[Rfam]
RNA sequence: CUCACCUAGUGCUCCUGCAGCGCAGGGGGCAGGCCUGAGCCCUGCGCCCGCCCCGUGUCCGUCCAGCCCCCGACGGGGCGCCCCAUCCCGAGGGGCUCUGUAGCGGCCCCCACCAAGGCAGGGGACCGGAGUGGCUUGGAGCUCGGCUGGAUGUUACAGGCGUGCAAA
Numbered sequence: 001c002u003c004a005c006c007u008a009g010u011g012c013u014c015c016u017g018c019a020g021c022g023c024a025g026g027g028g029g030c031a032g033g034c035c036u037g038a039g040c041c042c043u044g045c046g047c048c049c050g051c052c053c054c055g056u057g058u059c060c061g062u063c064c065a066g067c068c069c070c071c072g073a074c075g076g077g078g079c080g081c082c083c084c085a086u087c088c089c090g091a092g093g094g095g096c097u098c099u100g101u102a103g104c105g106g107c108c109c110c111c112a113c114c115a116a117g118g119c120a121g122g123g124g125a126c127c128g129g130a131g132u133g134g135c136u137u138g139g140a141g142c143u144c145g146g147c148u149g150g151a152u153g154u155u156a157c158a159g160g161c162g163u164g165c166a167a168a
Stems, first nucleotide, its partner, number of pairs: 008043002011040004017034002020030002023027001044163005050157001060153006068095004074090005097140004104129001105127002108124004141147002

The family of this 168-nucleotide RNA sequence from Orycteropus afer is "Spi-1 (PU.1) 5' UTR regulatory element". Rfam's curators write: Spi-1 regulates myeloid gene expression during haemopoietic development. This family represents a regulatory element found in the 5' UTR of Spi-1 mRNA which is able to inhibit the translation Spi-1 transcripts by 8-fold. Mutations in this regulatory region of the 5' UTR can lead to overexpression of Spi-1 which has been linked to erythroleukemic transformation. The literature on the family includes a 1997 paper in Nucleic Acids Res by Hensold et al., "The conserved 5'-untranslated leader of Spi-1 (PU.1) mRNA is highly structured and potently inhibits translation in vitro but not in vivo". The family's consensus secondary structure is taken from published work. The family's RNA type in Rfam is cis-regulatory element.